RNA sequence: ACUGGGCGUCGUGGCGGGCGUCUGUGAGCCAGCUUCUAGGCAGUAGAUGAGUGUGGAUGAAGUGAGGGAAGGAGUUCUGUGAAAGUUGUCGGCAACGGCGACCGAGUGUCCGUGCCAAGCGCUGCGUCGCCAGGGUUAUGACGGGGGAGCCCGAUGUAUACCCGGGCGGAUAAGGAGAGGCGUACGGCUCAGGGCCGAUGAGGCAGCAGGCAAAAGCAUCCGCGCGGUGCAGUGGCCGGAUAGCACUUGUGAGUUGCACCACUUUCACAGCCUUUCCGAUAUCUUCAGACCACUUGUCGC
Dot-bracket structure: ((((((((((......)))))))....(((........)))))).((((((((....(((((...(((((((....((((((((((.((..(((((......(((((((((..((((.(((((((((((((.((((((((.((((....)))).)))).)))).))))........((.((.....(((....(((.....)))....)))....)).)).)))))))))..)))).))...)))))))...))))))).))))))))))))))))).....)))))...))))))))..